[Rfam]
The family of this 114-nucleotide sequence from Danio rerio is "Potassium channel RNA editing signal".
From the family's description: This family represents a group of sequences related to the human potassium channel Kv1.1 hairpin element which directs the efficient modification of an adenosine to inosine by an adenosine deaminase acting on RNA (ADAR). The ADAR modification causes an isoleucine/valine recoding event which lies in the ion-conducting pore of the potassium channel. It is thought that this editing event targets the process of fast inactivation and allows a more rapid recovery from inactivation at negative potentials.
By type it is a cis-regulatory element.
A search with the family's covariance model found it, with a score of 81 bits.
NCBI's taxonomy places the organism under Eukaryota, Cypriniphysae, Cyprinoidei, Danionidae, Danio.

RNA sequence: GUGGGUUAUGGAGAUAUCUAUCCCCAAACUCUUCUAGGCAAAAUAGUAGGUGGACUCUGUUGUAUUGCUGGCGUAUUAGUGAUUGCUUUGCCCAUUCCUAUUAUCGUCAACAAC
Numbered sequence: 001g002u003g004g005g006u007u008a009u010g011g012a013g014a015u016a017u018c019u020a021u022c023c024c025c026a027a028a029c030u031c032u033u034c035u036a037g038g039c040a041a042a043a044u045a046g047u048a049g050g051u052g053g054a055c056u057c058u059g060u061u062g063u064a065u066u067g068c069u070g071g072c073g074u075a076u077u078a079g080u081g082a083u084u085g086c087u088u089u090g091c092c093c094a095u096u097c098c099u100a101u102u103a104u105c106g107u108c109a110a111c112a113a114c
Stems, first nucleotide, its partner, number of pairs: 001114002004111001008107004013102004020095002037077002040074001049063001